[Rfam]
RNA sequence: UAUAAUUCCAAUUGUAGUUCCCCACCCAGGAGCUACUUUACCAUAUUCCGAAUUC
Numbered sequence: 001u002a003u004a005a006u007u008c009c010a011a012u013u014g015u016a017g018u019u020c021c022c023c024a025c026c027c028a029g030g031a032g033c034u035a036c037u038u039u040a041c042c043a044u045a046u047u048c049c050g051a052a053u054u055c
Base pairs, nucleotide, nucleotide: 011039014036015035016034017033018032019031020030021029
Record summary: This 55-nucleotide sequence from Solanum tuberosum belongs to the Rfam family "Plastid-psbN 5UTR RNA". Plastid psbN is a non-coding RNA (ncRNA) recognised in plastids. It scores 55 bits against the family's covariance model.